[Rfam]
RNA sequence: AACUCUGUUCAUAGGAACAAAGAGAAGCAGAUUUAUUCUAUACACGACAAGUACCAACAUGCAAUGGGG
Numbered sequence: 001a002a003c004u005c006u007g008u009u010c011a012u013a014g015g016a017a018c019a020a021a022g023a024g025a026a027g028c029a030g031a032u033u034u035a036u037u038c039u040a041u042a043c044a045c046g047a048c049a050a051g052u053a054c055c056a057a058c059a060u061g062c063a064a065u066g067g068g069g
Stems, first nucleotide, its partner, number of pairs: 003022002006019005043068001045066001051060002
RNA: Plastid-clpP 5UTR RNA